[Rfam]
RNA: SAM riboswitch aptamer (S box leader)
Organism: Flammeovirga pacifica
RNA sequence: UGUUUAUAAAGAAGAGGCAAGAGACUAGGCUCAAAGACCCUCUAGCAACCUUCAUUCGUUGAAAAGGUGCUACAUCCUAGCCUAAAUAUUUAGGAGCUAUAAGCA
Numbered sequence: 001u002g003u004u005u006a007u008a009a010a011g012a013a014g015a016g017g018c019a020a021g022a023g024a025c026u027a028g029g030c031u032c033a034a035a036g037a038c039c040c041u042c043u044a045g046c047a048a049c050c051u052u053c054a055u056u057c058g059u060u061g062a063a064a065a066g067g068u069g070c071u072a073c074a075u076c077c078u079a080g081c082c083u084a085a086a087u088a089u090u091u092a093g094g095a096g097c098u099a100u101a102a103g104c105a
Stems, first nucleotide, its partner, number of pairs: 001105008013043005021032003026080001028078002044071004049067002051063004081094005